[Rfam]
RNA sequence: GCUACACCUAGGCUGAUCCCCGAAAAGACCGAUCCUUCACGGUCCUGGUGCGGCGUCUGUUGAAGGG
Numbered sequence: 001g002c003u004a005c006a007c008c009u010a011g012g013c014u015g016a017u018c019c020c021c022g023a024a025a026a027g028a029c030c031g032a033u034c035c036u037u038c039a040c041g042g043u044c045c046u047g048g049u050g051c052g053g054c055g056u057c058u059g060u061u062g063a064a065g066g067g
Stems, first nucleotide, its partner, number of pairs: 001054003005050004011021002027044005034067004
Description: int-alpA RNA: a 67-nucleotide RNA from Panacagrimonas perspica. Pairs were carried over by alignment from the consensus structure, which is taken from published work. Acidobacteria (1 example), Planctomycetes (1 example), Proteobacteria. It is annotated as a small RNA.